[Rfam]
RNA sequence: UUGAUCACAGGACCCCCUUAAACUCAUAAAUAAAUUAUUGAUGCACCAGACAGCCUGACCCUGACCCAAAGUAAAUUCCCAGGAGUCGUCUUUCCUGGGUUUUGAAUUUGCCGUAACAGGCGUAAACAUUCUAGCAGCAGUUUGGUGAUCAUGUAUGAUACUGCAAACAGGA
Dot-bracket structure: ..(.((...(......(((...(((((.(.((...)).).)))....))).)).....)...)).)...........(((.((((.....))))..))).......(((((.(((.((....(.(.((((..(((....))).)))).).)....)).))).))))).....
Numbered sequence: 001u002u003g004a005u006c007a008c009a010g011g012a013c014c015c016c017c018u019u020a021a022a023c024u025c026a027u028a029a030a031u032a033a034a035u036u037a038u039u040g041a042u043g044c045a046c047c048a049g050a051c052a053g054c055c056u057g058a059c060c061c062u063g064a065c066c067c068a069a070a071g072u073a074a075a076u077u078c079c080c081a082g083g084a085g086u087c088g089u090c091u092u093u094c095c096u097g098g099g100u101u102u103u104g105a106a107u108u109u110g111c112c113g114u115a116a117c118a119g120g121c122g123u124a125a126a127c128a129u130u131c132u133a134g135c136a137g138c139a140g141u142u143u144g145g146u147g148a149u150c151a152u153g154u155a156u157g158a159u160a161c162u163g164c165a166a167a168c169a170g171g172a
Stems, first nucleotide, its partner, number of pairs: 003066001005064002010059001017053002019050001023049002025043003029039001031037002078099003082094004107167005113161003117157002123151001125149001127147004133142003